[Rfam]
RNA sequence: GCCCAUUCCGCAGGAGAGAGCCGCGCCGGACCAAACCGGACGCCGCCGCCGAAGGCGCAAGUGCACCCGCAAUCGCUCAGGCAAAAGGACUGCAAGAAUCGG
Number, nucleotide and partner (000 for none) at each position: 001g000002c000003c000004c000005a000006u097007u096008c000009c000010g093011c092012a091013g090014g000015a000016g000017a000018g000019a000020g046021c045022c000023g043024c042025g041026c000027c000028g000029g000030a000031c000032c000033a000034a000035a000036c000037c000038g000039g000040a000041c025042g024043c023044c000045g021046c020047c000048g082049c081050c080051g078052a077053a000054g000055g076056c075057g074058c000059a000060a000061g070062u069063g000064c000065a000066c000067c000068c000069g062070c061071a000072a000073u000074c057075g056076c055077u052078c051079a000080g050081g049082c048083a000084a000085a000086a000087g000088g000089a000090c013091u012092g011093c010094a000095a000096g007097a006098a000099u000100c000101g000102g000
RNA: Glycine riboswitch aptamer
Organism: Vogesella sp. EB